[Rfam]
RNA sequence: UGAAUUCAAUAAGGCUUCACUCAUAUAAUCGCGGGAAUAUGGCCCGCAAGUCUCUACCGAAUUGCCGUAAACGAUUCGACUAUGAGUGGGUAAUGAGAACGG
Numbered sequence: 001u002g003a004a005u006u007c008a009a010u011a012a013g014g015c016u017u018c019a020c021u022c023a024u025a026u027a028a029u030c031g032c033g034g035g036a037a038u039a040u041g042g043c044c045c046g047c048a049a050g051u052c053u054c055u056a057c058c059g060a061a062u063u064g065c066c067g068u069a070a071a072c073g074a075u076u077c078g079a080c081u082a083u084g085a086g087u088g089g090g091u092a093a094u095g096a097g098a099a100c101g102g
Base pairs, nucleotide, nucleotide: 018088019087020086021085022084023083024082025081029049031047032046033045034044035043058078059077060076061075062074063073064072
Purine riboswitch aptamer: a 102-nucleotide sequence from Neobacillus rhizophilus.
Its family is annotated with purine nucleobase biosynthetic process in the Gene Ontology.
The family's consensus secondary structure is taken from published work.
Taxonomically the source falls in Neobacillus (Bacteria, Bacilli, Caryophanales, Bacillaceae).
Riboswitches are metabolite binding domains within certain messenger RNAs that serve as precision sensors for their corresponding targets. Allosteric rearrangement of mRNA structure is mediated by ligand binding, and this results in modulation of gene expression.